Overview: The family of this 161-nucleotide part of an RNA from Auanema sp. JU1783 is "Eukaryotic small subunit ribosomal RNA".
RNA sequence: CCGCCCGUCGCUGUCCGGGACUGAGCUGUUUCGAGAAACUUGAAGACUGUUACAGAAAGGCUUCGGCUUUGCUGUGAUGAGAAUCAAUUUGAUCGCAAUGGCUUGAACCGGGCAAAAGUCGUAACAAGGUACCUGUAGGUGAACCUGCAGGUGGAUCAUCG
Dot-bracket structure: (.(..((.(..(((((((..(.((((((((.(((..((.((((....((((((((.(((((....))))).))))))))....)))).))..))).)))))))))..)))))))...).))...)..).((((((((((....))))))))))........
Source information: Clan: SSU clan. The source organism's lineage runs through Eukaryota, Protostomia, Rhabditida, Rhabditidae and Auanema. It scores 1572 bits against the family's covariance model. A reference for the family is Yusupov et al. (2001), "Crystal structure of the ribosome at 5.5 A resolution", Science.